[Rfam]
RNA: Ribosomal protein L20 leader
Organism: Paenibacillus xerothermodurans
RNA sequence: GUCAUAAAGAAGAAGCGCCCGCUUCUCACCUGACCAACGGAAGUUGGCUGGUUAAUAAAGGUAAAGUGAACGUUUAUUACGAAAAUCACUUGAAAUUUAUUGGACGUGGGCGCGUGUCGCUCUCGUCCUUUUCAUUUUUU
Numbered sequence: 001g002u003c004a005u006a007a008a009g010a011a012g013a014a015g016c017g018c019c020c021g022c023u024u025c026u027c028a029c030c031u032g033a034c035c036a037a038c039g040g041a042a043g044u045u046g047g048c049u050g051g052u053u054a055a056u057a058a059a060g061g062u063a064a065a066g067u068g069a070a071c072g073u074u075u076a077u078u079a080c081g082a083a084a085a086u087c088a089c090u091u092g093a094a095a096u097u098u099a100u101u102g103g104a105c106g107u108g109g110g111c112g113c114g115u116g117u118c119g120c121u122c123u124c125g126u127c128c129u130u131u132u133c134a135u136u137u138u139u140u
Stems, first nucleotide, its partner, number of pairs: 011026006028052003034047005103127004108122005
Dot-bracket structure: ..........((((((....)))))).(((...(((((....)))))..)))..................................................((((.(((((.....))))).)))).............